[Rfam]
The record is a 77-nucleotide sequence from Affinibrenneria salicis, which matches "Group II catalytic intron D1-D4-1" in Rfam.
From the family's description: Group II introns are found in rRNA, tRNA and mRNA of organelles in fungi, plants and protists, and also in mRNA in bacteria.
RNA sequence: UGGGUGCAUCGCAAGGUGCGCUGACCUGCGGACAGGAGUCAGCAGAGGGCAUAGUAGGACAAGGUUGUCUGAAGGCC
Numbered sequence: 001u002g003g004g005u006g007c008a009u010c011g012c013a014a015g016g017u018g019c020g021c022u023g024a025c026c027u028g029c030g031g032a033c034a035g036g037a038g039u040c041a042g043c044a045g046a047g048g049g050c051a052u053a054g055u056a057g058g059a060c061a062a063g064g065u066u067g068u069c070u071g072a073a074g075g076c077c
Stems, first nucleotide, its partner, number of pairs: 003022008039046002048077003057070005